[Rfam]
Nucleotides: 174
Stems, first nucleotide, its partner, number of pairs: 001094001003092002006089001009086003016077004021070007101126001152169006
Number, partner (000 for none) and nucleotide at each position: 001094c002000a003092g004091u005000c006089a007000c008000u009086a010085c011084a012000u013000c014000c015000u016077c017076g018075c019074g020000a021070c022069u023068a024067a025066u026065g027064a028000c029000a030000a031000u032000c033000u034000u035000c036000a037000a038000u039000c040000u041000g042000c043000u044000c045000u046000c047000c048000a049000g050000c051000a052000g053000a054000a055000u056000a057000a058000a059000g060000u061000c062000u063000c064027u065026c066025a067024u068023u069022a070021g071000c072000c073000g074019c075018g076017c077016g078000a079000a080000u081000a082000g083000c084011u085010g086009u087000a088000a089006u090000a091004a092003c093000g094001g095000a096000c097000c098000a099000u100000u101126u102000u103000u104000c105000a106000c107000u108000u109000c110000a111000a112000c113000a114000a115000u116000a117000c118000a119000u120000u121000a122000c123000u124000c125000u126101g127000u128000u129000u130000c131000a132000g133000c134000a135000a136000c137000g138000c139000a140000u141000c142000c143000u144000a145000g146000a147000a148000g149000a150000a151000a152169g153168g154167g155166g156165c157164c158000a159000u160000a161000a162000u163000a164157g165156g166155c167154c168153c169152c170000u171000u172000u173000c174000u